Rfam assigns this 105-nucleotide RNA from Pseudomonas savastanoi to the family "Pseudomonas rnk leader". Pairs were carried over by alignment from the consensus structure, which is taken from published work. The family's RNA type in Rfam is cis-regulatory leader. For this family Rfam cites "Premature terminator analysis sheds light on a hidden world of bacterial transcriptional attenuation" (Naville and Gautheret, Genome Biol, 2010). Its family is annotated with regulation of gene expression in the Gene Ontology. It is one of the family's seed sequences.
RNA sequence: CGCGUCGGGUUGUGUAUUUACUGCGCUGUGUUAGUGUCGGAACCUGCUUCUCCAGAUUGAGAGGCCCGUAGAACCCCGCCCACCCCGGCGGGGUUUUGUUUUAUU
Numbered sequence: 001c002g003c004g005u006c007g008g009g010u011u012g013u014g015u016a017u018u019u020a021c022u023g024c025g026c027u028g029u030g031u032u033a034g035u036g037u038c039g040g041a042a043c044c045u046g047c048u049u050c051u052c053c054a055g056a057u058u059g060a061g062a063g064g065c066c067c068g069u070a071g072a073a074c075c076c077c078g079c080c081c082a083c084c085c086c087g088g089c090g091g092g093g094u095u096u097u098g099u100u101u102u103a104u105u
Stems, first nucleotide, its partner, number of pairs: 002051001004049001018034003022030002070097011